[Rfam]
RNA sequence: GAAGACCCUGUUGAGCUUUACUCUAGUCUGGCUUUGUGAAACGACUUAAGAGGUGUAGCAUAAGUGGGAGUAGAAACUGAAAUAUGUUUUUACGACAGUGAAAUACCACUACUUUUAAAGUUGUUUUACUUAUCUAUUGAAAGGGAUAUAUAUUUACUUGGUCCGCCAAGUAAUUCAUAUUAUUUGAAUUAACAAGUGCCAUCCGCGAUGGUCGCUUAUCUCCCACAUAUUCUAUGGAGACAUAGCCAGGUGGGGAGUUUGACUGGGGCGGUACAUCUGUUAAACAAUAACGCAGAUGUCCAAAGACAAGCUCAAAGAGAACAGAAAUCUCUUGUAGACUAAAAGGGGAAAAGCUUGUUUGAUUUCUAUUUUCAGAAAAAGUAGAAAACGUGAAAGCGUGGCCUAUCGAUCCUUUAUAUUUGCAAAAUAACGGAACUCGCCUUCCUAUUGUGCAUAUAGAGGUGUCUGAAAAGUUACCACAGGGAUAACUGGCUUGUGGCUGCCAAGCGCUCCUAGCGACGUAGCUUUUUGAUCCUUCGAUGU
Numbered sequence: 001g002a003a004g005a006c007c008c009u010g011u012u013g014a015g016c017u018u019u020a021c022u023c024u025a026g027u028c029u030g031g032c033u034u035u036g037u038g039a040a041a042c043g044a045c046u047u048a049a050g051a052g053g054u055g056u057a058g059c060a061u062a063a064g065u066g067g068g069a070g071u072a073g074a075a076a077c078u079g080a081a082a083u084a085u086g087u088u089u090u091u092a093c094g095a096c097a098g099u100g101a102a103a104u105a106c107c108a109c110u111a112c113u114u115u116u117a118a119a120g121u122u123g124u125u126u127u128a129c130u131u132a133u134c135u136a137u138u139g140a141a142a143g144g145g146a147u148a149u150a151u152a153u154u155u156a157c158u159u160g161g162u163c164c165g166c167c168a169a170g171u172a173a174u175u176c177a178u179a180u181u182a183u184u185u186g187a188a189u190u191a192a193c194a195a196g197u198g199c200c201a202u203c204c205g206c207g208a209u210g211g212u213c214g215c216u217u218a219u220c221u222c223c224c225a226c227a228u229a230u231u232c233u234a235u236g237g238a239g240a241c242a243u244a245g246c247c248a249g250g251u252g253g254g255g256a257g258u259u260u261g262a263c264u265g266g267g268g269c270g271g272u273a274c275a276u277c278u279g280u281u282a283a284a285c286a287a288u289a290a291c292g293c294a295g296a297u298g299u300c301c302a303a304a305g306a307c308a309a310g311c312u313c314a315a316a317g318a319g320a321a322c323a324g325a326a327a328u329c330u331c332u333u334g335u336a337g338a339c340u341a342a343a344a345g346g347g348g349a350a351a352a353g354c355u356u357g358u359u360u361g362a363u364u365u366c367u368a369u370u371u372u373c374a375g376a377a378a379a380a381g382u383a384g385a386a387a388a389c390g391u392g393a394a395a396g397c398g399u400g401g402c403c404u405a406u407c408g409a410u411c412c413u414u415u416a417u418a419u420u421u422g423c424a425a426a427a428u429a430a431c432g433g434a435a436c437u438c439g440c441c442u443u444c445c446u447a448u449u450g451u452g453c454a455u456a457u458a459g460a461g462g463u464g465u466c467u468g469a470a471a472a473g474u475u476a477c478c479a480c481a482g483g484g485a486u487a488a489c490u491g492g493c494u495u496g497u498g499g500c501u502g503c504c505a506a507g508c509g510c511u512c513c514u515a516g517c518g519a520c521g522u523a524g525c526u527u528u529u530u531g532a533u534c535c536u537u538c539g540a541u542g543u
Base pairs, nucleotide, nucleotide: 007483008482009481010480012479013478014475015474016473017472018471020258021257022256023255027250028249029248030247031246032245033244036129037128038127039126040125041124042123043122044121045120046118047117048116049115050114051113052112063110064109065108066107067106070093071092072091073090074089075088076087077086133238134237135236136235137234143231144230146228151172152171153170154169155168189225261274262272263271264270275297276296277295278294279293280292300401301400306358307357308356309355310354311353312338313337315333316332317331318330319329320328339348340347363387364386365385366384367383368382369381370380371379389398390397391396412461413460414459415458416457417456421454422453423452492533494531496530498526499525500524501523502522503521507517508516
Eukaryotic large subunit ribosomal RNA: a 543-nucleotide part of an RNA from Plasmodium knowlesi. Rfam links the family to the GO terms ribosome and structural constituent of ribosome. The sequence is in the family's curated seed alignment.